[Rfam]
RNA sequence: GAAUUUUACAAGCCGAAUCCGCGCAUGCGUGACUUUGUUCGCAUGCUGAAGUACGGAGGAACCGUUUUUUGGGGUGAAAGGACCGGAGAGCAACGAUUUUCCGGAACAAGGGUACCUUCUACCGAACCCGUCAGCUAACUUCGGAGGCUUAGGAAGGAGACUGU
Numbered sequence: 001g002a003a004u005u006u007u008a009c010a011a012g013c014c015g016a017a018u019c020c021g022c023g024c025a026u027g028c029g030u031g032a033c034u035u036u037g038u039u040c041g042c043a044u045g046c047u048g049a050a051g052u053a054c055g056g057a058g059g060a061a062c063c064g065u066u067u068u069u070u071g072g073g074g075u076g077a078a079a080g081g082a083c084c085g086g087a088g089a090g091c092a093a094c095g096a097u098u099u100u101c102c103g104g105a106a107c108a109a110g111g112g113u114a115c116c117u118u119c120u121a122c123c124g125a126a127c128c129c130g131u132c133a134g135c136u137a138a139c140u141u142c143g144g145a146g147g148c149u150u151a152g153g154a155a156g157g158a159g160a161c162u163g164u
Base pairs, nucleotide, nucleotide: 011149012148013147014146019051054143055142056141057140058139063071064070072129073128074127080107083104084103085102086101087100088099089098090097110123111122113121
c-di-AMP riboswitch aptamer (ydaO/yuaA leader): a 164-nucleotide sequence from Effusibacillus dendaii. The match comes from Rfam's covariance-model search (65 bits). Gene Ontology terms of the family: regulation of gene expression and cyclic-di-AMP binding.